[Rfam]
RNA: malK-I RNA
Nucleotides: 247
Stems, first nucleotide, its partner, number of pairs: 009038007017030002065078004070235005079103008088095002106199004111194002114191001202229008213220002
Number, partner (000 for none) and nucleotide at each position: 001000a002000u003000a004000c005000a006000a007000u008000g009038g010037c011036g012035g013034c014033g015032c016000g017030c018029a019000c020000u021000c022000c023000a024000u025000u026000u027000c028000u029018u030017g031000g032015g033014c034013g035012u036011c037010g038009u039000a040000c041000a042000u043000c044000a045000a046000a047000a048000a049000a050000g051000g052000a053000g054000g055000a056000a057000a058000u059000g060000c061000a062000u063000a064000a065078c066077c067076g068075c069000a070235g071234a072233c073232u074231c075068g076067c077066g078065g079103u080102g081101c082100a083099g084098c085097a086096g087000u088095g089094u090000g091000g092000a093000g094089a095088c096086c097085u098084g099083u100082u101081g102080u103079a104000a105000u106199g107198c108197a109196g110000c111194g112193g113000g114191c115000u116000u117000g118000g119000c120000g121000a122000g123000a124000a125000g126000g127000u128000c129000c130000a131000g132000a133000g134000g135000a136000u137000c138000c139000c140000g141000a142000a143000g144000a145000g146000c147000g148000a149000u150000u151000c152000c153000g154000u155000g156000c157000g158000c159000a160000c161000a162000g163000c164000g165000g166000g167000a168000u169000g170000u171000c172000a173000g174000c175000a176000g177000a178000c179000g180000c181000u182000u183000c184000g185000c186000g187000c188000c189000g190000u191114g192000g193112c194111c195000a196109c197108u198107g199106c200000g201000a202229g203228u204227g205226u206225a207224u208223a209222u210000u211000c212000a213220g214219c215000g216000g217000a218000u219214g220213c221000c222209g223208u224207a225206u226205a227204c228203a229202c230000a231074g232073a233072g234071u235070c236000g237000u238000u239000u240000c241000a242000a243000u244000g245000g246000c247000u